[Rfam]
RNA sequence: AGGCCUGUAGAGAGAGAGGCAGGGCCUGAUCCGCAACCUCUGUGGCAGCUGUUGAUCAGCUGUUGCCUCUCUCUUUCUCUUGG
Dot-bracket structure: .........(((((((((((((.(.((((((..((.(..........).))..)))))).).)))))))))))))........
Numbered sequence: 001a002g003g004c005c006u007g008u009a010g011a012g013a014g015a016g017a018g019g020c021a022g023g024g025c026c027u028g029a030u031c032c033g034c035a036a037c038c039u040c041u042g043u044g045g046c047a048g049c050u051g052u053u054g055a056u057c058a059g060c061u062g063u064u065g066c067c068u069c070u071c072u073c074u075u076u077c078u079c080u081u082g083g
Stems, first nucleotide, its partner, number of pairs: 010075013024061001026059006034051002037048001
This 83-nucleotide RNA sequence from Myotis davidii belongs to the Rfam family "mir-574 microRNA precursor family".
The family is grouped with related families in Rfam's "mir-574 microRNA precursor clan".
Gene Ontology terms of the family: RISC complex and miRNA-mediated post-transcriptional gene silencing.
Pairs were carried over by alignment from the consensus structure, which was predicted with RNAalifold.